[Rfam]
The family of this 126-nucleotide RNA from Cebus imitator is "Small nucleolar RNA SNORA27". The match comes from Rfam's covariance-model search (120 bits). About the family: ACA27 is a member of the H/ACA class of snoRNA that guide the sites of modification of uridines to pseudouridines. Rfam classes the family as an H/ACA-box small nucleolar RNA. Its family is annotated with nucleolus and RNA processing in the Gene Ontology.

RNA sequence: AACCCGUUUUUCACUUUGCCAAUUGGACUUAUGUCAUUAUUGGUCAUUCAGGUGGGCAAAGAAAAUAUGAUUUUAAAACUCAGGCAAACUAGGUGUUGGUCUUGUAUCCUGUUGAAGGAAACAAAU
Numbered sequence: 001a002a003c004c005c006g007u008u009u010u011u012c013a014c015u016u017u018g019c020c021a022a023u024u025g026g027a028c029u030u031a032u033g034u035c036a037u038u039a040u041u042g043g044u045c046a047u048u049c050a051g052g053u054g055g056g057c058a059a060a061g062a063a064a065a066u067a068u069g070a071u072u073u074u075a076a077a078a079c080u081c082a083g084g085c086a087a088a089c090u091a092g093g094u095g096u097u098g099g100u101c102u103u104g105u106a107u108c109c110u111g112u113u114g115a116a117g118g119a120a121a122c123a124a125a126u
Stems, first nucleotide, its partner, number of pairs: 032058004040051004068119001071116003081104001082102004087097003
Dot-bracket structure: ...............................((((....((((....))))...)))).........(..(((.......(((((.(((.....))).)))).).........)))..).......